Rfam assigns this 87-nucleotide RNA sequence from Streptomyces acidiscabies to the family "nrdJ RNA".
RNA sequence: ACCUGUUGCGGGCGGAAGAGCGUUUGGGUGCCCGCAACUUCAGAAAUCACACUGUGUCACGGGAACAACGUGGCAUUUCUGGGCGUU
Numbered sequence: 001a002c003c004u005g006u007u008g009c010g011g012g013c014g015g016a017a018g019a020g021c022g023u024u025u026g027g028g029u030g031c032c033c034g035c036a037a038c039u040u041c042a043g044a045a046a047u048c049a050c051a052c053u054g055u056g057u058c059a060c061g062g063g064a065a066c067a068a069c070g071u072g073g074c075a076u077u078u079c080u081g082g083g084c085g086u087u
Stems, first nucleotide, its partner, number of pairs: 005038010016025002054076008
Taxonomically the source falls in Streptomyces acidiscabies (Bacteria, Actinomycetota, Actinomycetes, Streptomycetaceae).